[Rfam]
RNA: c-di-GMP-I riboswitch aptamer
RNA sequence: UGAACGUAACGCCAAACCAUAGGUAACUGUGGGACGGAAAGCCACGGGUCCAGGUUAGCUUAUAGCUCACAGCUUAUAGCUCAUAGGAGAAGGUCACGACCUUCGACUAUCGGCUACCAGC
Dot-bracket structure: ...........((...((((((....))))))...))..((((..(((((..((((.........................................))))...)))..))))))......